[Rfam]
Nucleotides: 125
Base pairs, nucleotide, nucleotide: 001125002124003123004122005121006120007119008118009117010116011115012114013113015111016110017109018108019107020106021105023103024102025101026100027099028098029097030096031095032094033093034092035091036090037089038088039087041085042084043083044082046080047079
Number, partner (000 for none) and nucleotide at each position: 001125g002124g003123a004122a005121g006120u007119u008118a009117a010116g011115a012114a013113a014000c015111u016110g017109u018108u019107u020106u021105u022000g023103a024102a025101u026100u027099u028098u029097u030096a031095a032094c033093u034092a035091a036090a037089a038088a039087a040000g041085c042084u043083a044082a045000a046080a047079a048000c049000c050000g051000g052000u053000u054000c055000u056000u057000a058000a059000a060000u061000a062000a063000a064000g065000a066000c067000u068000u069000u070000a071000a072000g073000a074000a075000c076000u077000g078000g079047u080046u081000c082044u083043u084042a085041g086000a087039u088038u089037u090036u091035u092034u093033a094032g095031u096030u097029a098028a099027a100026a101025a102024u103023u104000a105021a106020a107019a108018a109017a110016c111015a112000a113013u114012u115011u116010c117009u118008u119007a120006a121005c122004u123003u124002c125001c
Rfam assigns this 125-nucleotide RNA sequence from Brassica napus to the family "MIR9563 microRNA precursor family".